[Rfam]
RNA sequence: GGGUGCAGGCCGCUCGUAGCGUCUGCAGGUUUCCGCGGAUGGUCGGGCCGCCAUUC
Numbered sequence: 001g002g003g004u005g006c007a008g009g010c011c012g013c014u015c016g017u018a019g020c021g022u023c024u025g026c027a028g029g030u031u032u033c034c035g036c037g038g039a040u041g042g043u044c045g046g047g048c049c050g051c052c053a054u055u056c
Stems, first nucleotide, its partner, number of pairs: 005026006012020001037056007
Dot-bracket structure: ....((((((.(.......)))))))..........(((((((......)))))))
RNA: nhaA-I RNA
Organism: Phycisphaerae bacterium RAS2